[Rfam]
RNA sequence: GCGUGCGUUUGGGAGGCGUUCGACUUUUGUCGAGGCUCGGGGUCAGAGCUAGUCUCCCAAACUCUGC
Numbered sequence: 001g002c003g004u005g006c007g008u009u010u011g012g013g014a015g016g017c018g019u020u021c022g023a024c025u026u027u028u029g030u031c032g033a034g035g036c037u038c039g040g041g042g043u044c045a046g047a048g049c050u051a052g053u054c055u056c057c058c059a060a061a062c063u064c065u066g067c
Base pairs, nucleotide, nucleotide: 007062008061009060010059011058012057013056014055015054016053017052020033021032022031023030024029035049036048037047038046
Dot-bracket structure: ......(((((((((((..(((((....))))).((((.......))))..))))))))))).....
Source information
Shown here is a 67-nucleotide sequence from Bradyrhizobium sp. ORS 278, a member of the family "RT-13 RNA". NCBI's taxonomy places the organism under Bacteria, Pseudomonadota, Hyphomicrobiales, Nitrobacteraceae, Bradyrhizobium. It is annotated as a small RNA.